[Rfam]
This 274-nucleotide sequence from Octodon degus belongs to the Rfam family "Mason-Pfizer monkey virus packaging signal".

RNA sequence: UGGCGCCCAACGCAGGGCUCUGGCAUGGGGGAUCCAGUGAGGGACACCGGUCAUCAGCCUAGCCAGCACCCUCUCCUCAGGAGGUUGACUCGUCGCGGGAGCCUGCCGCUUCUCGUCCCCUCGGUAAGUAACCGGCGAUUCAGUAUGGGACAGGCAAUUAGUGAACAUGAAAUGUUUCUUCAAGGCUUAGAAAAAGCUCUCAGGGCAUGAGGAGUAAAGGUUAAAGGUAAAGAUUUGUCUAAGUAUUUUGCAUAUAUAAAGGAGGUCUGUCCCU
Numbered sequence: 001u002g003g004c005g006c007c008c009a010a011c012g013c014a015g016g017g018c019u020c021u022g023g024c025a026u027g028g029g030g031g032a033u034c035c036a037g038u039g040a041g042g043g044a045c046a047c048c049g050g051u052c053a054u055c056a057g058c059c060u061a062g063c064c065a066g067c068a069c070c071c072u073c074u075c076c077u078c079a080g081g082a083g084g085u086u087g088a089c090u091c092g093u094c095g096c097g098g099g100a101g102c103c104u105g106c107c108g109c110u111u112c113u114c115g116u117c118c119c120c121u122c123g124g125u126a127a128g129u130a131a132c133c134g135g136c137g138a139u140u141c142a143g144u145a146u147g148g149g150a151c152a153g154g155c156a157a158u159u160a161g162u163g164a165a166c167a168u169g170a171a172a173u174g175u176u177u178c179u180u181c182a183a184g185g186c187u188u189a190g191a192a193a194a195a196g197c198u199c200u201c202a203g204g205g206c207a208u209g210a211g212g213a214g215u216a217a218a219g220g221u222u223a224a225a226g227g228u229a230a231a232g233a234u235u236u237g238u239c240u241a242a243g244u245a246u247u248u249u250g251c252a253u254a255u256a257u258a259a260a261g262g263a264g265g266u267c268u269g270u271c272c273c274u
Base pairs, nucleotide, nucleotide: 006031007030008029012026035049037047038046084125085124086123087122088121092117095109096108097107098106133153135151139149140148141147142146161197162196208250209249210248211247212246214244215243218236219235220234221233222232259274261272262271263270
The source organism's lineage runs through Eukaryota, Deuterostomia, Gnathostomata, Euteleostomi and Octodon. Rfam describes the family as follows. This family represents a group of sequences that are related to the Mason-Pfizer monkey virus (MPMV) packaging signal. The family's consensus secondary structure was predicted with PFOLD. Rfam 15.1 lists 2,921 matches to the family in 53 species.